[Rfam]
RNA sequence: UGUCUCCUCCAUGUCUCCUCCUGAUAUGGAUUAAGCCCGUUCCGCGUGAACGGGCUUUUUUUC
Numbered sequence: 001u002g003u004c005u006c007c008u009c010c011a012u013g014u015c016u017c018c019u020c021c022u023g024a025u026a027u028g029g030a031u032u033a034a035g036c037c038c039g040u041u042c043c044g045c046g047u048g049a050a051c052g053g054g055c056u057u058u059u060u061u062u063c
Stems, first nucleotide, its partner, number of pairs: 008030008034056008
The record is a 63-nucleotide RNA sequence from Burkholderia multivorans, which matches "Betaproteobacteria toxic small RNA" in Rfam.
From the family's description: Overexpression in amino aid rich medium attenuates growth, suggesting role in repressing amino acid intake and metabolism.